[Rfam]
RNA sequence: GAGAAAUGAGGAUACAGGCUUUGUCUGAGUUUUAUAUGAAGACUUCAGAUCCAACUCUGAUCUCACAUGGAAG
Numbered sequence: 001g002a003g004a005a006a007u008g009a010g011g012a013u014a015c016a017g018g019c020u021u022u023g024u025c026u027g028a029g030u031u032u033u034a035u036a037u038g039a040a041g042a043c044u045u046c047a048g049a050u051c052c053a054a055c056u057c058u059g060a061u062c063u064c065a066c067a068u069g070g071a072a073g
Base pairs, nucleotide, nucleotide: 001064002063003062004061
Dot-bracket structure: ((((........................................................)))).........

The record is a 73-nucleotide sequence from Bambusicola thoracicus, which matches "Small nucleolar RNA SNORD19" in Rfam. For this family Rfam cites "RNomics: an experimental approach that identifies 201 candidates for novel, small, non-messenger RNAs in mouse" (Huttenhofer et al., EMBO J, 2001). The organism belongs to Bambusicola, within Eukaryota. A search with the family's covariance model found it, with a score of 42 bits. Gene Ontology terms of the family: nucleolus and RNA processing.